[Rfam]
Small nucleolar RNA snoR2/U65: a 139-nucleotide RNA from Aegilops tauschii.

RNA sequence: UGCCCAAUGGUCCUUCUCUGGUAGCUACAAGCAUUGACCAGGGGAUCUAUAAUUGGGCCAAGAAUCUGUUUUCACUCAUUGAUAGGAACCUGGAACUUCAUUUUGUUAGUCCGCGGAGCCUAUUAUUGUGAUAAAAUUG
Numbered sequence: 001u002g003c004c005c006a007a008u009g010g011u012c013c014u015u016c017u018c019u020g021g022u023a024g025c026u027a028c029a030a031g032c033a034u035u036g037a038c039c040a041g042g043g044g045a046u047c048u049a050u051a052a053u054u055g056g057g058c059c060a061a062g063a064a065u066c067u068g069u070u071u072u073c074a075c076u077c078a079u080u081g082a083u084a085g086g087a088a089c090c091u092g093g094a095a096c097u098u099c100a101u102u103u104u105g106u107u108a109g110u111c112c113g114c115g116g117a118g119c120c121u122a123u124u125a126u127u128g129u130g131a132u133a134a135a136a137u138u139g
Stems, first nucleotide, its partner, number of pairs: 002058007009050001014045005020039003024032003072131004085120002090116003093112001095110003
Source information: The family has 11 seed sequences and 908 matches in Rfam 15.1. By type it is an H/ACA-box small nucleolar RNA. The family's consensus secondary structure was predicted with WAR. NCBI's taxonomy places the organism under Eukaryota, Embryophyta, Euphyllophyta, Spermatophyta, Aegilops tauschii.